[Rfam]
U7 small nuclear RNA: a 62-nucleotide RNA from Theropithecus gelada. Animal histone pre-mRNAs are spliced by a different mechanism than nuclear pre-mRNAs and self-splicing introns. The match comes from Rfam's covariance-model search (47 bits). The family's consensus secondary structure was predicted with PFOLD.
RNA sequence: CAGUUUUACAACUCUUUUAAAAUACGUCUAGUAGAUUUUCUGGUCUUUACCAGAAAGACUUA
Numbered sequence: 001c002a003g004u005u006u007u008a009c010a011a012c013u014c015u016u017u018u019a020a021a022a023u024a025c026g027u028c029u030a031g032u033a034g035a036u037u038u039u040c041u042g043g044u045c046u047u048u049a050c051c052a053g054a055a056a057g058a059c060u061u062a
Base pairs, nucleotide, nucleotide: 034059036057037056038055039054040053041052042051043050044049